Rfam assigns this 115-nucleotide sequence from Dermatophilus congolensis to the family "SAM riboswitch aptamer (S box leader)". The family's consensus secondary structure is taken from published work.

[Rfam]
RNA sequence: AAUCCAUCACGACCGGCUGAGGGACUGGACCGAUGAUGCCGGGGCAACCACGCCAAACCCCUGCGCGCACGGUGCCACAUCCUGCGGCCUUCACCCGAAAGCCGACAGAUGGACU
Numbered sequence: 001a002a003u004c005c006a007u008c009a010c011g012a013c014c015g016g017c018u019g020a021g022g023g024a025c026u027g028g029a030c031c032g033a034u035g036a037u038g039c040c041g042g043g044g045c046a047a048c049c050a051c052g053c054c055a056a057a058c059c060c061c062u063g064c065g066c067g068c069a070c071g072g073u074g075c076c077a078c079a080u081c082c083u084g085c086g087g088c089c090u091u092c093a094c095c096c097g098a099a100a101g102c103c104g105a106c107a108g109a110u111g112g113a114c115u
Base pairs, nucleotide, nucleotide: 001115003113004112005111006110007109008108013042014041015040016039017038021031022030025084027082028081043076044075045074046073048072049071051067052066053065080107085104086103087102088101090099